[Rfam]
RNA sequence: GUGGCUGGACGUAUAGUCGGGAAACCCUUCAGGAACCUUUACCGUUGGGUAAGGGGACUUCUUCGGAACUCUAAGUCA
Number, nucleotide and partner (000 for none) at each position: 001g000002u000003g000004g000005c000006u000007g000008g000009a000010c000011g000012u000013a000014u000015a000016g000017u000018c000019g000020g000021g000022a000023a000024a000025c000026c000027c000028u000029u000030c000031a000032g000033g000034a000035a000036c055037c054038u053039u052040u051041a050042c049043c048044g000045u000046u000047g000048g043049g042050u041051a040052a039053g038054g037055g036056g071057a070058c000059u068060u067061c066062u000063u000064c000065g000066g061067a060068a059069c000070u057071c056072u000073a000074a000075g000076u000077c000078a000
The record is a 78-nucleotide sequence from Legionella pneumophila, which matches "RAGATH-32 RNA" in Rfam. The family's RNA type in Rfam is cis-regulatory element. The base pairs follow the family's consensus structure, which is taken from published work. Taxonomically the source falls in Legionella pneumophila (Bacteria, Pseudomonadota, Legionellaceae, Legionella).